[Rfam]
Shown here is a 67-nucleotide RNA sequence from Notodromas monacha, a member of the family "DUF805 RNA". The source organism's lineage runs through Eukaryota, Opisthokonta, Oligostraca, Podocopa and Notodromas. A search with the family's covariance model found it, with a score of 74 bits.
RNA sequence: AUUUUAUGGAGUCCAGAAACCAUUAAAAAACGAGGCGAAUCCGAAAAGCCAAAAGAGUAGGGCAUUU
Numbered sequence: 001a002u003u004u005u006a007u008g009g010a011g012u013c014c015a016g017a018a019a020c021c022a023u024u025a026a027a028a029a030a031c032g033a034g035g036c037g038a039a040u041c042c043g044a045a046a047a048g049c050c051a052a053a054a055g056a057g058u059a060g061g062g063c064a065u066u067u
Stems, first nucleotide, its partner, number of pairs: 006023004034050003041061002